RNA sequence: CUAAUAAGAAAAGCUACAUCUUGUAUAAGUCCAGGAAUAUGGCUUGGGCGUUUCUACCAGCUACCAUAAAUAGCUCGUCUACAAGGGAUGGAAAUGUAUUU
Numbered sequence: 001c002u003a004a005u006a007a008g009a010a011a012a013g014c015u016a017c018a019u020c021u022u023g024u025a026u027a028a029g030u031c032c033a034g035g036a037a038u039a040u041g042g043c044u045u046g047g048g049c050g051u052u053u054c055u056a057c058c059a060g061c062u063a064c065c066a067u068a069a070a071u072a073g074c075u076c077g078u079c080u081a082c083a084a085g086g087g088a089u090g091g092a093a094a095u096g097u098a099u100u101u
Stems, first nucleotide, its partner, number of pairs: 019086007029049007058077001059075005
The record is a 101-nucleotide RNA from Oceanobacillus zhaokaii, which matches "Purine riboswitch aptamer" in Rfam. Taxonomically the source falls in Oceanobacillus (Bacteria, Bacillota, Bacilli, Bacillaceae). About the family: Riboswitches are metabolite binding domains within certain messenger RNAs that serve as precision sensors for their corresponding targets. Clan: Purine riboswitches. It scores 74 bits against the family's covariance model.